[Rfam]
RNA: dinG RNA
RNA sequence: CAUGGUACUUCUGCUUUGAACGCUUCACCGCAUUGGGCAGCCCGGCAGACGGCCGGGAAAACGCAUCACCCUCGUUUGAGAUAGAACGAGGGGCGGCUUUU
Numbered sequence: 001c002a003u004g005g006u007a008c009u010u011c012u013g014c015u016u017u018g019a020a021c022g023c024u025u026c027a028c029c030g031c032a033u034u035g036g037g038c039a040g041c042c043c044g045g046c047a048g049a050c051g052g053c054c055g056g057g058a059a060a061a062c063g064c065a066u067c068a069c070c071c072u073c074g075u076u077u078g079a080g081a082u083a084g085a086a087c088g089a090g091g092g093g094c095g096g097c098u099u100u101u
Stems, first nucleotide, its partner, number of pairs: 011040005041057006058101004063097002071090005